[Rfam]
RNA sequence: GCCCUCCUGGUGCUUGUCACAGGCUGUAUUUUUAUAUUGACUAUAUCAAAUGAGGCGGCAAAGUAAAUCUACCACAUAUACACCUCAGCCCAGGUCCUGUGCCUGGUCUGUAUUGCAAAUGAGGAGACAUGG
Dot-bracket structure: ..((.(((............((...((((....))))...))..........))).)).............((.(((........(((.((((((.....)))))).)))........))).))........
Background:
A member of the RNA family "Small nucleolar RNA SNORA51" from Castor canadensis, 132 nucleotides long. Rfam 15.1 lists 2,121 matches to the family in 210 species. By type it is an H/ACA-box small nucleolar RNA.